Cyanobacterial functional RNA 1: a 64-nucleotide RNA sequence from Aphanothece sacrum. For this family Rfam cites "A motif-based search in bacterial genomes identifies the ortholog of the small RNA Yfr1 in all lineages of cyanobacteria" (Voss et al., BMC Genomics, 2007). By type it is a small RNA.
RNA sequence: GCGGAGACGAAUGUUUCCGUUCACUCCUCACACCACACUCCGCUCGGGCUUUGUUCGAGCGGUU
Numbered sequence: 001g002c003g004g005a006g007a008c009g010a011a012u013g014u015u016u017c018c019g020u021u022c023a024c025u026c027c028u029c030a031c032a033c034c035a036c037a038c039u040c041c042g043c044u045c046g047g048g049c050u051u052u053g054u055u056c057g058a059g060c061g062g063u064u
Stems, first nucleotide, its partner, number of pairs: 001020008041061007
Dot-bracket structure: ((((((((....))))))))....................(((((((.......)))))))...